[Rfam]
RNA sequence: GACUGCCAUCAGGGAUUCAUUUUGUGAACCCUGACCCACCGCCAGAUAGGAGUUCAUGCCAAGCUCUUUCAUCUGCUCUUCACCAAUGACCUUGGUUGUCAGAUUAUCGGCAUUGUCAGCAAGCUGGCGCGCCUGUGAUGCCAGAUAGGCAGCAUUACAGAUAUUGGGUGGCAUGUUGGCCAGAUCUUUUGU
Numbered sequence: 001g002a003c004u005g006c007c008a009u010c011a012g013g014g015a016u017u018c019a020u021u022u023u024g025u026g027a028a029c030c031c032u033g034a035c036c037c038a039c040c041g042c043c044a045g046a047u048a049g050g051a052g053u054u055c056a057u058g059c060c061a062a063g064c065u066c067u068u069u070c071a072u073c074u075g076c077u078c079u080u081c082a083c084c085a086a087u088g089a090c091c092u093u094g095g096u097u098g099u100c101a102g103a104u105u106a107u108c109g110g111c112a113u114u115g116u117c118a119g120c121a122a123g124c125u126g127g128c129g130c131g132c133c134u135g136u137g138a139u140g141c142c143a144g145a146u147a148g149g150c151a152g153c154a155u156u157a158c159a160g161a162u163a164u165u166g167g168g169u170g171g172c173a174u175g176u177u178g179g180c181c182a183g184a185u186c187u188u189u190u191g192u
Stems, first nucleotide, its partner, number of pairs: 005186001012032003016028005033043001035041001050059001062077003079131001081129001083127003087123001092119005099110002133160003137156005164183004169178001
Yersinia sRNA 276: a 192-nucleotide sequence from Xenorhabdus szentirmaii. Pairs were carried over by alignment from the consensus structure, which was predicted with RNAfold. The literature on the family includes a 2015 paper in PLoS Genet by Nuss et al., "Transcriptomic profiling of Yersinia pseudotuberculosis reveals reprogramming of the Crp regulon by temperature and uncovers Crp as a master regulator of small RNAs".